The record is a 182-nucleotide sequence from Albula goreensis, which matches "Small nucleolar RNA SNORD97" in Rfam.
Pairs were carried over by alignment from the consensus structure, which was predicted with WAR.
Taxonomically the source falls in Albula (Eukaryota, Opisthokonta, Elopocephalai, Elopocephala).
Rfam 15.1 lists 639 matches to the family in 614 species.
For this family Rfam cites "Identification of 13 novel human modification guide RNAs" (Vitali et al., Nucleic Acids Res, 2003).

RNA sequence: CUGCCCUGUGAUUAUGAAAAGACGCGUUAUUCUGAGGGGGAAAACCUGCUGCCAGUUCUCUCAGUCUUGUUCUUUUUUUUCACCACUCUUUUCAGUUCUCCCUCUCUUCUCUUCUCUCCACUCCACUUCACCUCUAUUCUGGCGAUGGUUCCACUGAACGUGAUUAUGAGAUAUGAGGGCAG
Numbered sequence: 001c002u003g004c005c006c007u008g009u010g011a012u013u014a015u016g017a018a019a020a021g022a023c024g025c026g027u028u029a030u031u032c033u034g035a036g037g038g039g040g041a042a043a044a045c046c047u048g049c050u051g052c053c054a055g056u057u058c059u060c061u062c063a064g065u066c067u068u069g070u071u072c073u074u075u076u077u078u079u080u081c082a083c084c085a086c087u088c089u090u091u092u093c094a095g096u097u098c099u100c101c102c103u104c105u106c107u108u109c110u111c112u113u114c115u116c117u118c119c120a121c122u123c124c125a126c127u128u129c130a131c132c133u134c135u136a137u138u139c140u141g142g143c144g145a146u147g148g149u150u151c152c153a154c155u156g157a158a159c160g161u162g163a164u165u166a167u168g169a170g171a172u173a174u175g176a177g178g179g180c181a182g
Stems, first nucleotide, its partner, number of pairs: 001182006035105007